[Rfam]
RNA sequence: UUUGGGAGAUGAUGUGACUAUACAAAUUUAUCAAAUGCAUCAGCAAUGCUGAUUUGUUUAUUUUGCACGUCAGUCUGAUCCCAAG
Numbered sequence: 001u002u003u004g005g006g007a008g009a010u011g012a013u014g015u016g017a018c019u020a021u022a023c024a025a026a027u028u029u030a031u032c033a034a035a036u037g038c039a040u041c042a043g044c045a046a047u048g049c050u051g052a053u054u055u056g057u058u059u060a061u062u063u064u065g066c067a068c069g070u071c072a073g074u075c076u077g078a079u080c081c082c083a084a085g
Base pairs, nucleotide, nucleotide: 001085002084003083004082005081006080007079
Shown here is an 85-nucleotide RNA sequence from Rhamnella rubrinervis, a member of the family "Small nucleolar RNA Z122". Lineage of the source: Eukaryota > eudicotyledons > Rosales > Rhamneae > Rhamnella. Rfam links the family to the GO terms RNA processing and nucleolus. A reference for the family is Chen et al. (2003), "The high diversity of snoRNAs in plants: identification and comparative study of 120 snoRNA genes from Oryza sativa", Nucleic Acids Res.